[Rfam]
RNA sequence: AGUUAUGGUUGAAACAAGAUUUACCGUAAGAAGUCAGCAGAAAUCAUAGUACUUUAACAGUUGCAAAUGUUAGAGGAAGGAU
Numbered sequence: 001a002g003u004u005a006u007g008g009u010u011g012a013a014a015c016a017a018g019a020u021u022u023a024c025c026g027u028a029a030g031a032a033g034u035c036a037g038c039a040g041a042a043a044u045c046a047u048a049g050u051a052c053u054u055u056a057a058c059a060g061u062u063g064c065a066a067a068u069g070u071u072a073g074a075g076g077a078a079g080g081a082u
Stems, first nucleotide, its partner, number of pairs: 001020001003019002006016002009013001034041002043082003052075008
RNA: Group II catalytic intron D1-D4-1